[Rfam]
RNA sequence: UGCGGGAUGCCGAAAUCGGGUCCCGGGUUAUCGAAACUUGCUGAUCUUCAGGAGAUUCAUCAUGACU
Numbered sequence: 001u002g003c004g005g006g007a008u009g010c011c012g013a014a015a016u017c018g019g020g021u022c023c024c025g026g027g028u029u030a031u032c033g034a035a036a037c038u039u040g041c042u043g044a045u046c047u048u049c050a051g052g053a054g055a056u057u058c059a060u061c062a063u064g065a066c067u
Stems, first nucleotide, its partner, number of pairs: 001027001003025006010019003031055001037054003041051004
RNA: Repression of heat shock gene expression (ROSE) element
Organism: Pseudomonas sp. HPB0071